Annotation:
The record is a 222-nucleotide RNA from Xenococcus sp. PCC 7305, which matches "HNH endonuclease-associated RNA and ORF (HEARO) RNA" in Rfam. The organism belongs to Xenococcus, within Bacteria. The match comes from Rfam's covariance-model search (127 bits). The literature on the family includes a 2009 paper in Nature by Weinberg et al., "Exceptional structured noncoding RNAs revealed by bacterial metagenome analysis".
RNA sequence: GUCACCGACCCACCGUUAAUUGCUCCGCAAUUUAACGGGGGCUUGAAAAAGUCCGCAAGGUGACCAGCUUACUGAAAACUUCAGUAAACGUUAUUUAACUUAUGACACCUUAAGGUACGUGCCAGCUUUAAGCUCUGUCGUUUAAUUUUAAACAGGACUAAACGGGUUAAUCCAGUGAAUUAGACCGAACAAAGUUAGAUAACCAAGCGAGGCAAACAUUAC
Dot-bracket structure: ((((((...((.((..((..............))..)).))(((....))).......))))))..(((((((((.....)))))....(((((((((((....((..((((((((...[[[[.))))))))....)).(((((((((...((.(((.(((.....))).))).))))))))))).......))))))))))).))))..]]]]........
Numbered sequence: 001g002u003c004a005c006c007g008a009c010c011c012a013c014c015g016u017u018a019a020u021u022g023c024u025c026c027g028c029a030a031u032u033u034a035a036c037g038g039g040g041g042c043u044u045g046a047a048a049a050a051g052u053c054c055g056c057a058a059g060g061u062g063a064c065c066a067g068c069u070u071a072c073u074g075a076a077a078a079c080u081u082c083a084g085u086a087a088a089c090g091u092u093a094u095u096u097a098a099c100u101u102a103u104g105a106c107a108c109c110u111u112a113a114g115g116u117a118c119g120u121g122c123c124a125g126c127u128u129u130a131a132g133c134u135c136u137g138u139c140g141u142u143u144a145a146u147u148u149u150a151a152a153c154a155g156g157a158c159u160a161a162a163c164g165g166g167u168u169a170a171u172c173c174a175g176u177g178a179a180u181u182a183g184a185c186c187g188a189a190c191a192a193a194g195u196u197a198g199a200u201a202a203c204c205a206a207g208c209g210a211g212g213c214a215a216a217c218a219u220u221a222c
Stems, first nucleotide, its partner, number of pairs: 001064006010041002013038002017034002042051003067208004071085005090203011105138002109132008120214004140185009152176002155173003159169003